[Rfam]
RNA sequence: ACUCUAAUAGUUUAUGAAAAACAUUGGUCUUGUAAACCAAAAACUGAAGACUCCACCCUUCUUAGAGUA
Numbered sequence: 001a002c003u004c005u006a007a008u009a010g011u012u013u014a015u016g017a018a019a020a021a022c023a024u025u026g027g028u029c030u031u032g033u034a035a036a037c038c039a040a041a042a043a044c045u046g047a048a049g050a051c052u053c054c055a056c057c058c059u060u061c062u063u064a065g066a067g068u069a
Stems, first nucleotide, its partner, number of pairs: 001068007010022004024040005046061004
RNA: tRNA